Fluoride riboswitch aptamer (crcB RNA motif): a 69-nucleotide sequence from Erwinia sp. OLSSP12. The organism belongs to Erwinia, within Bacteria.
RNA sequence: CCCGCAACGGGUGAUGGCGUUCCACCUGCCCCAACCGCCCUCUUCAGGGCUGAUGACGCCUGGCUAAAU
Numbered sequence: 001c002c003c004g005c006a007a008c009g010g011g012u013g014a015u016g017g018c019g020u021u022c023c024a025c026c027u028g029c030c031c032c033a034a035c036c037g038c039c040c041u042c043u044u045c046a047g048g049g050c051u052g053a054u055g056a057c058g059c060c061u062g063g064c065u066a067a068a069u
Stems, first nucleotide, its partner, number of pairs: 010026004016060006037050004